Rfam assigns this 112-nucleotide RNA from Paenibacillus sp. JCM 10914 to the family "epsC RNA". A search with the family's covariance model found it, with a score of 54 bits. Rfam 15.1 lists 450 matches to the family in 334 species. The organism belongs to Paenibacillus, within Bacteria.
RNA sequence: CGGGUGUCCCUGCUAACCCUUAUCAUUGCAGGACUCGGCAGUGCUGUAGGUCAUUUGACCGUAGACGUGGAUCGUCAAGGGUGCUGUGCGGGGAAUGCGGGUAAGAUCACCG
Numbered sequence: 001c002g003g004g005u006g007u008c009c010c011u012g013c014u015a016a017c018c019c020u021u022a023u024c025a026u027u028g029c030a031g032g033a034c035u036c037g038g039c040a041g042u043g044c045u046g047u048a049g050g051u052c053a054u055u056u057g058a059c060c061g062u063a064g065a066c067g068u069g070g071a072u073c074g075u076c077a078a079g080g081g082u083g084c085u086g087u088g089c090g091g092g093g094a095a096u097g098c099g100g101g102u103a104a105g106a107u108c109a110c111c112g
Base pairs, nucleotide, nucleotide: 002018003017007033009032010031011030012029013028034092035091036090037089038087039086040085041084042083043082044081045080049060050059051058052057064076065075066074067073098112099111100110